[Rfam]
RNA sequence: CUCCGCGCUGAGUGCGCGGAGUCCUUUUCUACUGCAACAAGGGGUCUGCCCGUG
Number, nucleotide and partner (000 for none) at each position: 001c021002u020003c019004c018005g017006c016007g015008c014009u000010g000011a000012g000013u000014g008015c007016g006017c005018g004019g003020a002021g001022u000023c000024c000025u000026u000027u000028u000029c000030u000031a000032c000033u000034g000035c000036a000037a000038c000039a000040a000041g000042g000043g000044g000045u000046c000047u000048g000049c000050c000051c000052g000053u000054g000
RNA: ClpQY promoter
Organism: Pantoea sp. At-9b